[Rfam]
RNA sequence: GUCCACGUUGCGGCGGACCAGAUCCAGAGACCUCCAAGACUCAGGAUAGCGAUCGGCCAGAAUCUCGUCGUCAUAAAAAGCAGGCCGAUCGC
Numbered sequence: 001g002u003c004c005a006c007g008u009u010g011c012g013g014c015g016g017a018c019c020a021g022a023u024c025c026a027g028a029g030a031c032c033u034c035c036a037a038g039a040c041u042c043a044g045g046a047u048a049g050c051g052a053u054c055g056g057c058c059a060g061a062a063u064c065u066c067g068u069c070g071u072c073a074u075a076a077a078a079a080g081c082a083g084g085c086c087g088a089u090c091g092c
Base pairs, nucleotide, nucleotide: 001018002017003016004015025045032038049092050091051090052089053088054087055086056085057084058083063082065080068077

The record is a 92-nucleotide sequence from Devosia sp. A8/3-2, which matches "Rhizobiales sRNA Atu_Ti1" in Rfam.
NCBI's taxonomy places the organism under Bacteria, Pseudomonadati, Alphaproteobacteria, Devosiaceae, Devosia.
It is annotated as a small RNA.